[Rfam]
RNA sequence: GAGAACAAGAAGAAGCACCCGCUUCUCGCCUAAGUUUUGAAACCUCUGGGCUGAUCGAUAAUUUCUGUUGAUUAAGAGCGGGUAGCAAAUCGGUUAUCCGCUCUUUUCUUGUCCU
Number, nucleotide and partner (000 for none) at each position: 001g000002a000003g000004a000005a000006c000007a000008a000009g000010a000011a026012g025013a024014a023015g022016c021017a000018c000019c000020c000021g016022c015023u014024u013025c012026u011027c000028g051029c050030c049031u000032a000033a045034g044035u042036u041037u000038u000039g000040a000041a036042a035043c000044c034045u033046c000047u000048g000049g030050g029051c028052u000053g000054a000055u000056c000057g000058a000059u000060a000061a000062u000063u000064u000065c000066u000067g000068u000069u000070g000071a000072u000073u000074a000075a000076g000077a102078g101079c100080g099081g098082g097083u096084a095085g094086c093087a000088a000089a000090u000091c000092g000093g086094u085095u084096a083097u082098c081099c080100g079101c078102u077103c000104u000105u000106u000107u000108c000109u000110u000111g000112u000113c000114c000115u000
Shown here is a 115-nucleotide RNA sequence from Lactobacillus pasteurii, a member of the family "Ribosomal protein L20 leader". On this family, see Zengel and Lindahl, Prog Nucleic Acid Res Mol Biol 1994: "Diverse mechanisms for regulating ribosomal protein synthesis in Escherichia coli". The family's RNA type in Rfam is cis-regulatory leader. A search with the family's covariance model found it, with a score of 75 bits. Rfam's curators write: This family is a putative r-protein leader autoregulatory structure found in B. subtilis and other low-GC Gram-positive bacteria.